[Rfam]
RNA: FMN riboswitch aptamer (RFN element)
Organism: Mesorhizobium hungaricum
Nucleotides: 147
Stems, first nucleotide, its partner, number of pairs: 004144007017029003031127002033116002035063004058114002066092002096112005118130003
Number, partner (000 for none) and nucleotide at each position: 001000u002000a003000a004144u005143g006142u007141u008140c009139u010138c011000a012000g013000g014000g015000c016000g017029g018028g019027g020000u021000g022000a023000a024000a025000g026000u027019c028018c029017c030000c031127a032126c033116c034115g035063g036062c037061g038060g039000u040000a041000a042000g043000g044000g045000u046000g047000u048000u049000c050000g051000c052000a053000c054000c055000c056000g057000a058114g059113c060038c061037c062036g063035c064000g065000a066092g067091c068000g069000c070000c071000u072000u073000c074000c075000g076000g077000c078000a079000a080000c081000g082000g083000a084000a085000g086000g087000g088000u089000c090000a091067g092066c093000a094000g095000a096112u097111c098110c099109g100108g101000u102000g103000u104000a105000a106000u107000u108100c109099c110098g111097g112096a113059g114058c115034c116033g117000a118130c119129g120128g121000u122000c123000a124000c125000a126032g127031u128120c129119c130118g131000g132000a133000u134000g135000g136000a137000a138010g139009a140008g141007a142006a143005c144004g145000a146000a147000c